[Rfam]
RNA: Actino-pnp RNA
RNA sequence: GCCGGUCCUCGGUAGUGGUUCUCGGGACACCCGGUCCCGCGGACUUCGAUCGAUGACCGGC
Numbered sequence: 001g002c003c004g005g006u007c008c009u010c011g012g013u014a015g016u017g018g019u020u021c022u023c024g025g026g027a028c029a030c031c032c033g034g035u036c037c038c039g040c041g042g043a044c045u046u047c048g049a050u051c052g053a054u055g056a057c058c059g060g061c
Base pairs, nucleotide, nucleotide: 001061002060003059004058005057006056007055009053010052011051012050013049017045018044019043020042021041023039024038025037026036027035028034